[Rfam]
Nucleotides: 086
Stems, first nucleotide, its partner, number of pairs: 005049008015039002017074004024035004063081005
Number, partner (000 for none) and nucleotide at each position: 001000g002000g003000c004000a005049c006048u007047g008046g009045u010044c011043g012042c013000g014000a015039c016038u017074g018073g019072c020071g021000a022000a023000g024035g025034u026033g027032g028000a029000c030000c031000a032027c033026c034025a035024c036000c037000g038016g039015g040000g041000a042012g043011c044010g045009g046008c047007c048006a049005g050000c051000c052000u053000u054000c055000c056000c057000g058000c059000g060000u061000g062000a063081g064080c065079g066078u067077c068000g069000a070000c071020c072019g073018c074017c075000u076000g077067g078066g079065c080064g081063c082000c083000u084000c085000c086000g
The family of this 86-nucleotide RNA sequence from Longispora fulva is "ZMP/ZTP riboswitch aptamer (pfl RNA motif)". Its family is annotated with one-carbon metabolic process and regulation of purine nucleotide biosynthetic process in the Gene Ontology. The match comes from Rfam's covariance-model search (57 bits). The base pairs follow the family's consensus structure, which is taken from published work. Lineage of the source: Bacteria > Bacillati > Micromonosporales > Micromonosporaceae > Longispora.